[Rfam]
Nucleotides: 187
Base pairs, nucleotide, nucleotide: 011171012170013169014168018035019034020033021032022031023030024029036166037165038164039163040162041161046088089151090150091149097126098125099124100123129145130144131143132142
Number, partner (000 for none) and nucleotide at each position: 001000u002000g003000c004000a005000g006000u007000a008000u009000a010000u011171c012170g013169c014168u015000g016000a017000a018035u019034u020033c021032c022031c023030g024029g025000c026000u027000c028000g029024c030023c031022g032021g033020g034019a035018a036166g037165c038164g039163g040162g041161g042000g043000a044000a045000c046088c047000a048000a049000c050000g051000g052000g053000a054000c055000a056000u057000g058000a059000c060000a061000a062000c063000g064000c065000g066000u067000u068000a069000g070000a071000c072000g073000c074000g075000c076000c077000g078000a079000u080000c081000g082000g083000u084000c085000c086000a087000a088046g089151g090150g091149g092000u093000g094000a095000a096000u097126c098125c099124c100123u101000u102000c103000g104000c105000g106000c107000u108000u109000g110000c111000c112000u113000u114000g115000c116000a117000a118000g119000c120000g121000c122000u123100g124099g125098g126097g127000u128000a129145g130144g131143g132142c133000g134000a135000c136000u137000c138000u139000c140000a141000c142132g143131c144130c145129c146000g147000a148000a149091u150090c151089c152000g153000u154000c155000a156000g157000c158000u159000a160000a161041c162040c163039u164038c165037g166036u167000a168014a169013g170012c171011g172000u173000a174000u175000a176000g177000a178000g179000a180000g181000a182000g183000g184000c185000a186000a187000c